[Rfam]
RNA sequence: CUACGGGGAUGAUCUCAAAAGUUGAACUCUCUCUUUCUGAUGAAUUAGUGGAGAAAACAAACAUUCUGAGUAGC
Numbered sequence: 001c002u003a004c005g006g007g008g009a010u011g012a013u014c015u016c017a018a019a020a021g022u023u024g025a026a027c028u029c030u031c032u033c034u035u036u037c038u039g040a041u042g043a044a045u046u047a048g049u050g051g052a053g054a055a056a057a058c059a060a061a062c063a064u065u066c067u068g069a070g071u072a073g074c
Stems, first nucleotide, its partner, number of pairs: 001073004
RNA: Small nucleolar RNA SNORD26